The family of this 169-nucleotide sequence from Dorea sp. CAG:105 is "Clostridiales-1 RNA".
It is annotated as a small RNA.
RNA sequence: UUUUACCAAGGUCAUAAGUCAUGUCGUCACACUAUGCUUGCACAAGGGUGACAGCAUGACUUCAUGACCUGCCCCGCAAUGAGGAUAAAAGCAUGGCGAAAGCCAUGCGAUAUCCGAAUUGCGGGUAGGAUUGCGGGAGUGCAAGGCACGGAGCAAUCCGAAGAUAAAA
Numbered sequence: 001u002u003u004u005a006c007c008a009a010g011g012u013c014a015u016a017a018g019u020c021a022u023g024u025c026g027u028c029a030c031a032c033u034a035u036g037c038u039u040g041c042a043c044a045a046g047g048g049u050g051a052c053a054g055c056a057u058g059a060c061u062u063c064a065u066g067a068c069c070u071g072c073c074c075c076g077c078a079a080u081g082a083g084g085a086u087a088a089a090a091g092c093a094u095g096g097c098g099a100a101a102g103c104c105a106u107g108c109g110a111u112a113u114c115c116g117a118a119u120u121g122c123g124g125g126u127a128g129g130a131u132u133g134c135g136g137g138a139g140u141g142c143a144a145g146g147c148a149c150g151g152a153g154c155a156a157u158c159c160g161a162a163g164a165u166a167a168a169a
Base pairs, nucleotide, nucleotide: 001169002168003167004166005165007163010069011068012067013066016062017061018060019059020058021057022056023055024054026052027051028050029049030048033044035042036041073125074124075123076122077121078120079119080118083115084114085113086112091108092107093106094105095104096103097102128159129158130157131156132155133154134153139149140148141147142146